[Rfam]
RNA sequence: CCAAAAUUAGCCACUUGUCAUUUCUAAUUGCUUCUUAGCAUGUUAAAAUUUUCUAAGAACCAAUUACAAAAUGACAAGUAGCUAGUUUUGG
Numbered sequence: 001c002c003a004a005a006a007u008u009a010g011c012c013a014c015u016u017g018u019c020a021u022u023u024c025u026a027a028u029u030g031c032u033u034c035u036u037a038g039c040a041u042g043u044u045a046a047a048a049u050u051u052u053c054u055a056a057g058a059a060c061c062a063a064u065u066a067c068a069a070a071a072u073g074a075c076a077a078g079u080a081g082c083u084a085g086u087u088u089u090g091g
Base pairs, nucleotide, nucleotide: 002090003089004088005087006086007085008084009083010082011081013079014078015077016076017075018074019073020072021071022070023068025066026065027064028063029062030061032059033058034057035056036055037054038053

Background: MIR6288 microRNA precursor family: a 91-nucleotide RNA sequence from Prunus dulcis. The source organism's lineage runs through Eukaryota, Spermatophyta, eudicotyledons, Pentapetalae and Prunus. The base pairs follow the family's consensus structure, which was predicted with RNAalifold. Its family is annotated with RISC complex and miRNA-mediated post-transcriptional gene silencing in the Gene Ontology. Rfam 15.1 lists 293 matches to the family in 9 species.